A member of the RNA family "Small nucleolar RNA snoR53Y" from Leersia perrieri, 78 nucleotides long. It scores 69 bits against the family's covariance model. Rfam links the family to the GO terms nucleolus and RNA processing. The base pairs follow the family's consensus structure, which was predicted with WAR. It is annotated as a C/D-box small nucleolar RNA. Clan: snoR53 clan.

[Rfam]
Nucleotides: 078
Base pairs, nucleotide, nucleotide: 001077002076003075004074005073
Number, partner (000 for none) and nucleotide at each position: 001077g002076u003075u004074c005073c006000c007000a008000g009000u010000g011000a012000u013000g014000g015000u016000u017000u018000a019000a020000a021000u022000u023000a024000a025000c026000c027000a028000u029000g030000c031000u032000a033000a034000u035000a036000c037000u038000g039000a040000u041000g042000u043000c044000u045000u046000c047000u048000g049000a050000c051000g052000a053000g054000u055000a056000a057000a058000a059000a060000a061000u062000a063000c064000u065000g066000u067000a068000c069000u070000g071000a072000g073005g074004g075003a076002a077001c078000c